[Rfam]
RNA sequence: UUGUGCUACAUGAUGAAUUGAAUAGUUAUCCCUGUCUGAUGAUCAUUAUGAAAGAUGACCAUAUUCUGAGGCACAU
Numbered sequence: 001u002u003g004u005g006c007u008a009c010a011u012g013a014u015g016a017a018u019u020g021a022a023u024a025g026u027u028a029u030c031c032c033u034g035u036c037u038g039a040u041g042a043u044c045a046u047u048a049u050g051a052a053a054g055a056u057g058a059c060c061a062u063a064u065u066c067u068g069a070g071g072c073a074c075a076u
Stems, first nucleotide, its partner, number of pairs: 002075006
Dot-bracket structure: .((((((..............................................................)))))).